[Rfam]
RNA sequence: GCUGAGCUCGAUAACGUGAGCUUGUCACCCGUGUGGGGGCGUAGGGGUGGUAAGGAUGAUUCAGCCUUUGAUCUUAGGGUUGGGUGAGUCGGUUCAGUUUCUGGCUUGUCCGAUCCAAGUUUGGCAGUUGACCUUGCGGGUUUGGGCGCAAGCUCAAAUCUUUAGGGUCCUAAAGUAGAGGGCAACGCGUGAGGCUGGCUUCACAGAGCAGCGAUCACCUCUCACUCCUAACGGUGGAGGGAUAACGAGUCGGUGCGCCGCACGCUCAGCGUACUCUAAGUUUCGAUUGCACUCAAACUCUCACCCUU
Numbered sequence: 001g002c003u004g005a006g007c008u009c010g011a012u013a014a015c016g017u018g019a020g021c022u023u024g025u026c027a028c029c030c031g032u033g034u035g036g037g038g039g040c041g042u043a044g045g046g047g048u049g050g051u052a053a054g055g056a057u058g059a060u061u062c063a064g065c066c067u068u069u070g071a072u073c074u075u076a077g078g079g080u081u082g083g084g085u086g087a088g089u090c091g092g093u094u095c096a097g098u099u100u101c102u103g104g105c106u107u108g109u110c111c112g113a114u115c116c117a118a119g120u121u122u123g124g125c126a127g128u129u130g131a132c133c134u135u136g137c138g139g140g141u142u143u144g145g146g147c148g149c150a151a152g153c154u155c156a157a158a159u160c161u162u163u164a165g166g167g168u169c170c171u172a173a174a175g176u177a178g179a180g181g182g183c184a185a186c187g188c189g190u191g192a193g194g195c196u197g198g199c200u201u202c203a204c205a206g207a208g209c210a211g212c213g214a215u216c217a218c219c220u221c222u223c224a225c226u227c228c229u230a231a232c233g234g235u236g237g238a239g240g241g242a243u244a245a246c247g248a249g250u251c252g253g254u255g256c257g258c259c260g261c262a263c264g265c266u267c268a269g270c271g272u273a274c275u276c277u278a279a280g281u282u283u284c285g286a287u288u289g290c291a292c293u294c295a296a297a298c299u300c301u302c303a304c305c306c307u308u
Stems, first nucleotide, its partner, number of pairs: 001040003004023007028037003043308008052299001054298001057295002060291001063288002066285001071282001073280008082267005088261002091259003095255002101253009110241002114238004119232003123228002126226003130169007138161010170175001177222005188213003195206003
RNA: Plant signal recognition particle RNA